[Rfam]
RNA sequence: UUGUUUGAGGGAACCGGAGGGUCGCCCUCGGCGCCGCUUGGGCCAGUGUUUCGGGGCCGGCCCUGACAAGCAGCCCGAGGAGGGCCUCGAACGACUCAAACCUGGACUUCUGCGAUUGUCGCUUCCUUUUCCUGCCUCUGAGCUCGGGAGGGGUUUCCCGCCUCGCAGCCCCCGCCCCUGGACUUGCUUCUCCUCCUCCCUCUGCGUGUGGAGGGAGCCAACGCUUAGGCCGGAGCGAGCCUAGGGGCCGCCGGCCGUGAGGCCGCUCGGGGGCCUGUUCGCCAUG
Numbered sequence: 001u002u003g004u005u006u007g008a009g010g011g012a013a014c015c016g017g018a019g020g021g022u023c024g025c026c027c028u029c030g031g032c033g034c035c036g037c038u039u040g041g042g043c044c045a046g047u048g049u050u051u052c053g054g055g056g057c058c059g060g061c062c063c064u065g066a067c068a069a070g071c072a073g074c075c076c077g078a079g080g081a082g083g084g085c086c087u088c089g090a091a092c093g094a095c096u097c098a099a100a101c102c103u104g105g106a107c108u109u110c111u112g113c114g115a116u117u118g119u120c121g122c123u124u125c126c127u128u129u130u131c132c133u134g135c136c137u138c139u140g141a142g143c144u145c146g147g148g149a150g151g152g153g154u155u156u157c158c159c160g161c162c163u164c165g166c167a168g169c170c171c172c173c174g175c176c177c178c179u180g181g182a183c184u185u186g187c188u189u190c191u192c193c194u195c196c197u198c199c200c201u202c203u204g205c206g207u208g209u210g211g212a213g214g215g216a217g218c219c220a221a222c223g224c225u226u227a228g229g230c231c232g233g234a235g236c237g238a239g240c241c242u243a244g245g246g247g248c249c250g251c252c253g254g255c256c257g258u259g260a261g262g263c264c265g266c267u268c269g270g271g272g273g274c275c276u277g278u279u280c281g282c283c284a285u286g
Base pairs, nucleotide, nucleotide: 001012002011015031017029018028019027020026033061034060035059082156083155084154086151129150130149131148132147133146184221185220186219188217189216190215191214197212198211199210231254233252235251236250237249

Notes:
Rfam assigns this 286-nucleotide sequence from Dasypus novemcinctus to the family "HIF-1 alpha IRES". The literature on the family includes a 2002 paper in Mol Biol Cell by Lang et al., "Hypoxia-inducible factor-1alpha mRNA contains an internal ribosome entry site that allows efficient translation during normoxia and hypoxia". The family's consensus secondary structure was predicted with RNAfold. Rfam's curators put it in the seed alignment.